[Rfam]
RNA sequence: CUCAUGGGCUUCUGUCAUGAGUGGCACACCACGUAGGGCAGCUUGAUUGCUCCUCAUGCAAACUUGACAUUAAGAGAUUUUGGAAGCAUGAUUUUUUGGUAUUUGGGCAGCUGGUGAUUGUUGGUCUUGGCAUCCUU
Numbered sequence: 001c002u003c004a005u006g007g008g009c010u011u012c013u014g015u016c017a018u019g020a021g022u023g024g025c026a027c028a029c030c031a032c033g034u035a036g037g038g039c040a041g042c043u044u045g046a047u048u049g050c051u052c053c054u055c056a057u058g059c060a061a062a063c064u065u066g067a068c069a070u071u072a073a074g075a076g077a078u079u080u081u082g083g084a085a086g087c088a089u090g091a092u093u094u095u096u097u098g099g100u101a102u103u104u105g106g107g108c109a110g111c112u113g114g115u116g117a118u119u120g121u122u123g124g125u126c127u128u129g130g131c132a133u134c135c136u137u
Base pairs, nucleotide, nucleotide: 008087009086010085011084012083013026014025015024016023017022030058031057033055036052037051038050039049040048041047059082060081061080062079064077065076105135106134107133110131111130112129113128114127116126117125118124119123
The record is a 137-nucleotide RNA sequence from Camelus dromedarius, which matches "U11 spliceosomal RNA" in Rfam. The base pairs follow the family's consensus structure, which is taken from published work. By type it is a spliceosomal small nuclear RNA.